[Rfam]
RNA sequence: AUACGAAACGGCAAACCUAUCGAAAGGUAGGGACGCAAAGCUAUAGGGCCUUCUAACAGAUGGCAGCCUGGCCACCGAAA
Dot-bracket structure: ..........((...((((((....))))))..[))...(((..((((((...........))).]))))))........
Numbered sequence: 001a002u003a004c005g006a007a008a009c010g011g012c013a014a015a016c017c018u019a020u021c022g023a024a025a026g027g028u029a030g031g032g033a034c035g036c037a038a039a040g041c042u043a044u045a046g047g048g049c050c051u052u053c054u055a056a057c058a059g060a061u062g063g064c065a066g067c068c069u070g071g072c073c074a075c076c077g078a079a080a
Stems, first nucleotide, its partner, number of pairs: 011036002016031006034066001040072003045069003048064003